The record is a 92-nucleotide sequence from Alsobacter metallidurans, which matches "Selenocysteine transfer RNA" in Rfam. For this family Rfam cites "Eukaryotic selenocysteine tRNA has the 9/4 secondary structure" (Mizutani and Goto, FEBS Lett, 2000). Lineage of the source: Bacteria > Pseudomonadati > Pseudomonadota > Hyphomicrobiales > Alsobacter. The base pairs follow the family's consensus structure, which is taken from published work.
RNA sequence: GGAAGAGAUAUUCAUCUGGUGAUGGAGCCGGACUUCAAAUCCGGUGGGGGCCGCGAGCCGGUCUCUGGUGGGUUCGACUCCCACUCUCUUCC
Numbered sequence: 001g002g003a004a005g006a007g008a009u010a011u012u013c014a015u016c017u018g019g020u021g022a023u024g025g026a027g028c029c030g031g032a033c034u035u036c037a038a039a040u041c042c043g044g045u046g047g048g049g050g051c052c053g054c055g056a057g058c059c060g061g062u063c064u065c066u067g068g069u070g071g072g073u074u075c076g077a078c079u080c081c082c083a084c085u086c087u088c089u090u091c092c
Stems, first nucleotide, its partner, number of pairs: 001092008011026006027045006047065005069083004